[Rfam]
Bacterial RNase P class B: a 382-nucleotide sequence from Pseudolactococcus hodotermopsidis. Its Rfam clan is "RNaseP clan". The match comes from Rfam's covariance-model search (296 bits). Rfam's curators write: Ribonuclease P (RNase P) is a ubiquitous endoribonuclease, found in archaea, bacteria and eukarya as well as chloroplasts and mitochondria. Its best characterised activity is the generation of mature 5'-ends of tRNAs by cleaving the 5'-leader elements of precursor-tRNAs. Cellular RNase Ps are ribonucleoproteins.
RNA sequence: GUUUUCGGAUAAUUGCGCGAUUUCUUAGAAAAUCGUGAGGAAAGUCCAUGCUCGCGCGGACUGCGAUGUCCGCAGUGUUUGUGCUAGGCGAAACCAUAAGCCUAGGUAGGUGUGUCAGACCUAACGGCUGAAUUUUAGCUAAGUUUUCUUUGGAAGAUAAGCGAAAAAUUCUGUAAAAGUGCCAUAGAGACGAGUUGCUUUGGAAACAGAGCAAGUGGAACGUGGUAAACCCCUCAAGCGAGCAACCCAAACUUAUGGUAGGGGCACUUGUCACGCGGAAUGUUUAAGAACGCACGACGAGGCUGGUUUUAACUAAUCAGCAGACAGAUGAUUAUCAACGGUUGGUUGAAAUACCAACUGGAACAAAACAUGGCUUAUAGAA
Dot-bracket structure: ...(((((((((((.((((((..........))))))....[[[.[[[[[(((((((((((......)))))).....(((.(((((((..........))))))((((((.......))))).)(((.((....(.((...((((((....))))))..)).).....)).).....(((((...........((((((((....)))))))).........)))..))))).))))))))...(((............)))...((((((.......................))))))((((((........))))))........)))))))..((((((((......))))))))........]]]]]]]].).)))